[Rfam]
RNA sequence: GUUGGGAAAUGAUGAGAAUAUAUUGAUACAUCAGAGGGACAGUUUAAUCUGUGCUUUGCUGAAUAAAUUUUGCACGUCAGUCUGAUCCCAAU
Numbered sequence: 001g002u003u004g005g006g007a008a009a010u011g012a013u014g015a016g017a018a019u020a021u022a023u024u025g026a027u028a029c030a031u032c033a034g035a036g037g038g039a040c041a042g043u044u045u046a047a048u049c050u051g052u053g054c055u056u057u058g059c060u061g062a063a064u065a066a067a068u069u070u071u072g073c074a075c076g077u078c079a080g081u082c083u084g085a086u087c088c089c090a091a092u
Stems, first nucleotide, its partner, number of pairs: 001092007
Shown here is a 92-nucleotide RNA from Solanum lycopersicum, a member of the family "Small nucleolar RNA Z122". A search with the family's covariance model found it, with a score of 65 bits. For this family Rfam cites "Seven novel methylation guide small nucleolar RNAs are processed from a common polycistronic transcript by Rat1p and RNase III in yeast" (Qu et al., Mol Cell Biol, 1999).